RNA sequence: CCCGCCACUAUGCCAGUCUGCCCAGUGGCUGAGUAUAAUCCAGUGGAGGCUCAGAUUGACCCAGCUUUAGGAAACGGGGCCGUUCACACUCAUGGGUCGCUCUGUGCCGAAAAGACUGAGACAAAC
Numbered sequence: 001c002c003c004g005c006c007a008c009u010a011u012g013c014c015a016g017u018c019u020g021c022c023c024a025g026u027g028g029c030u031g032a033g034u035a036u037a038a039u040c041c042a043g044u045g046g047a048g049g050c051u052c053a054g055a056u057u058g059a060c061c062c063a064g065c066u067u068u069a070g071g072a073a074a075c076g077g078g079g080c081c082g083u084u085c086a087c088a089c090u091c092a093u094g095g096g097u098c099g100c101u102c103u104g105u106g107c108c109g110a111a112a113a114g115a116c117u118g119a120g121a122c123a124a125a126c
Stems, first nucleotide, its partner, number of pairs: 005046005018033002020030001021028002062118003065114004070108002075104006083096003
Rfam assigns this 126-nucleotide sequence from Pleuronectes platessa to the family "Small nucleolar RNA SNORA65". U65 belongs to the H/ACA class of snoRNAs which are thought to guide the sites of modification of uridines to pseudouridines. The family's RNA type in Rfam is H/ACA-box small nucleolar RNA. The organism belongs to Pleuronectes, within Eukaryota. The base pairs follow the family's consensus structure, which was predicted with RNAalifold. Its family is annotated with RNA processing and nucleolus in the Gene Ontology. Rfam 15.1 lists 1,089 matches to the family in 619 species.